[Rfam]
RNA: Group II catalytic intron D1-D4-1
RNA sequence: CGUCCUGCAUGGCAACAUGAAGGAUGACCGGACAGGAGUCAGCAGAUGUCAUAAUAGUUCAACGAAGGAC
Numbered sequence: 001c002g003u004c005c006u007g008c009a010u011g012g013c014a015a016c017a018u019g020a021a022g023g024a025u026g027a028c029c030g031g032a033c034a035g036g037a038g039u040c041a042g043c044a045g046a047u048g049u050c051a052u053a054a055u056a057g058u059u060c061a062a063c064g065a066a067g068g069a070c
Base pairs, nucleotide, nucleotide: 001026002025004023005022006021008019009018010017011016038047039046040045048070049069050068057063058062